[Rfam]
RNA sequence: UGAGCUGCGGUGGGAGAGGGCCGGCCCGCGCCGGCCGCCGACGGAGCAACAACCCUUCAGACACUCUCAGGCACCCGUACCGCCACAGUCAG
Numbered sequence: 001u002g003a004g005c006u007g008c009g010g011u012g013g014g015a016g017a018g019g020g021c022c023g024g025c026c027c028g029c030g031c032c033g034g035c036c037g038c039c040g041a042c043g044g045a046g047c048a049a050c051a052a053c054c055c056u057u058c059a060g061a062c063a064c065u066c067u068c069a070g071g072c073a074c075c076c077g078u079a080c081c082g083c084c085a086c087a088g089u090c091a092g
Stems, first nucleotide, its partner, number of pairs: 006087002009084005020035004037072003040068002044066003050060001
RNA: Glycine riboswitch aptamer